Shown here is a 99-nucleotide RNA sequence, a member of the family "S15-Halobacteria ribosomal protein leader".
RNA sequence: UAGGGAACCACACGGCCGUAGAUCCGACUCGCCGCUCGCCGGGUGCGUGGCACCGUUUGUUCGCCACGCUGCCGGGGCGGCUUGGGACUGCGGUAGUGU
Numbered sequence: 001u002a003g004g005g006a007a008c009c010a011c012a013c014g015g016c017c018g019u020a021g022a023u024c025c026g027a028c029u030c031g032c033c034g035c036u037c038g039c040c041g042g043g044u045g046c047g048u049g050g051c052a053c054c055g056u057u058u059g060u061u062c063g064c065c066a067c068g069c070u071g072c073c074g075g076g077g078c079g080g081c082u083u084g085g086g087a088c089u090g091c092g093g094u095a096g097u098g099u
Stems, first nucleotide, its partner, number of pairs: 010099004015094007024086002031081005037076001
For this family Rfam cites "Discovery of 20 novel ribosomal leader candidates in bacteria and archaea" (Eckert and Weinberg, BMC Microbiol, 2020).